[Rfam]
RNA: Eukaryotic small subunit ribosomal RNA, nucleotides 2056 to 2204
Nucleotides: 149
Base pairs, nucleotide, nucleotide: 001116003113006109007108009106011103012102013101014100015099016098017097018096021093022092024090025089026088028086030084031083032082033081036078037077038076039075040074042072046068048066049065050064051063052062053061054060055059118141119140120139121138122137123136124135125134126133127132
Number, partner (000 for none) and nucleotide at each position: 001116c002000c003113g004000c005000c006109c007108g008000u009106c010000g011103u012102u013101g014100u015099u016098u017097c018096c019000g020000a021093u022092g023000a024090u025089g026088g027000u028086g029000c030084a031083a032082u033081a034000c035000a036078g037077g038076u039075g040074a041000u042072c043000g044000g045000a046068c047000a048066g049065g050064c051063g052062g053061a054060u055059g056000u057000c058000u059055c060054a061053u062052c063051u064050g065049c066048c067000c068046g069000a070000a071000a072042g073000u074040u075039c076038a077037c078036c079000g080000a081033u082032a083031u084030u085000u086028c087000u088026u089025c090024a091000a092022u093021a094000g095000a096018g097017g098016a099015a100014g101013c102012a103011a104000a105000a106009g107000u108007c109006g110000u111000a112000a113003c114000a115000a116001g117000g118141u119140a120139g121138c122137u123136g124135u125134a126133g127132g128000u129000g130000a131000a132127c133126c134125u135124g136123c137122a138121g139120c140119u141118g142000g143000a144000u145000c146000a147000u148000u149000u